[Rfam]
RNA: Bacterial large subunit ribosomal RNA, nucleotides 15 to 614
RNA sequence: GAGCACACGGAGGAUGCCUUGGUACAUGGAGGCGAUGAAGGACGUGGUAAGCUGCGAUAAGCUUCGGGUAGGUGCACACAACUGCUAAUCCGGAGAUUUCCGAAUGGGGCAACCCGUUUUGAGUUAUAUCAAAACACUUUCAUCUGAAUAUAUAGGAUGAAAAGAGCUAACGAGGUGAACUGAUACAUCUAAGUAACCUUAGGAAUAGAAAACAAAAGUGAUUCCCCUAGUAGUGGCGAACGAAAAGGGAAGAGCCCAAACUAAUGCUGUGUCAAGUCUGCAAAUUUUGCAGUAUUAGGGUUGUGGGGUUAUUAUUAAUCCAAUUGCAGUUGGAUUGACAAGUCAAAAAAUAAAAUGUUAACAAAAUAAUUUGGAAAGAUUAACCAUAGAAGGUGAUAGUCCUGUAUGUGAAAACAUUUUAUCUUGUCUUAAUAAUUCCCGAGUAGGACGGAACACGUGAAAUUCUGUUUGAAUCUACCAAGACCACUUGGUAAGGCUAAAUACUCCCAUGUAACCGAUAGUGAACUAGUACCGUGAGGGAAAGGUGAAAAGUAAUCCGAGAGGAUAGUGAAAUAGAACCUGAAACUGUGUGUUUACAAG
Numbered sequence: 001g002a003g004c005a006c007a008c009g010g011a012g013g014a015u016g017c018c019u020u021g022g023u024a025c026a027u028g029g030a031g032g033c034g035a036u037g038a039a040g041g042a043c044g045u046g047g048u049a050a051g052c053u054g055c056g057a058u059a060a061g062c063u064u065c066g067g068g069u070a071g072g073u074g075c076a077c078a079c080a081a082c083u084g085c086u087a088a089u090c091c092g093g094a095g096a097u098u099u100c101c102g103a104a105u106g107g108g109g110c111a112a113c114c115c116g117u118u119u120u121g122a123g124u125u126a127u128a129u130c131a132a133a134a135c136a137c138u139u140u141c142a143u144c145u146g147a148a149u150a151u152a153u154a155g156g157a158u159g160a161a162a163a164g165a166g167c168u169a170a171c172g173a174g175g176u177g178a179a180c181u182g183a184u185a186c187a188u189c190u191a192a193g194u195a196a197c198c199u200u201a202g203g204a205a206u207a208g209a210a211a212a213c214a215a216a217a218g219u220g221a222u223u224c225c226c227c228u229a230g231u232a233g234u235g236g237c238g239a240a241c242g243a244a245a246a247g248g249g250a251a252g253a254g255c256c257c258a259a260a261c262u263a264a265u266g267c268u269g270u271g272u273c274a275a276g277u278c279u280g281c282a283a284a285u286u287u288u289g290c291a292g293u294a295u296u297a298g299g300g301u302u303g304u305g306g307g308g309u310u311a312u313u314a315u316u317a318a319u320c321c322a323a324u325u326g327c328a329g330u331u332g333g334a335u336u337g338a339c340a341a342g343u344c345a346a347a348a349a350a351u352a353a354a355a356u357g358u359u360a361a362c363a364a365a366a367u368a369a370u371u372u373g374g375a376a377a378g379a380u381u382a383a384c385c386a387u388a389g390a391a392g393g394u395g396a397u398a399g400u401c402c403u404g405u406a407u408g409u410g411a412a413a414a415c416a417u418u419u420u421a422u423c424u425u426g427u428c429u430u431a432a433u434a435a436u437u438c439c440c441g442a443g444u445a446g447g448a449c450g451g452a453a454c455a456c457g458u459g460a461a462a463u464u465c466u467g468u469u470u471g472a473a474u475c476u477a478c479c480a481a482g483a484c485c486a487c488u489u490g491g492u493a494a495g496g497c498u499a500a501a502u503a504c505u506c507c508c509a510u511g512u513a514a515c516c517g518a519u520a521g522u523g524a525a526c527u528a529g530u531a532c533c534g535u536g537a538g539g540g541a542a543a544g545g546u547g548a549a550a551a552g553u554a555a556u557c558c559g560a561g562a563g564g565a566u567a568g569u570g571a572a573a574u575a576g577a578a579c580c581u582g583a584a585a586c587u588g589u590g591u592g593u594u595u596a597c598a599a600g
Stems, first nucleotide, its partner, number of pairs: 001595010016580001017545002021516002023513007030505002032167002040101003043056003062095007071083003106115003116135007137164002139161007171202001172200005182189002212219002222501001223250004233241002253498004261298011305440003310434005347425002350422010361409003367382005385389001391403003446470008477492005532539002555566004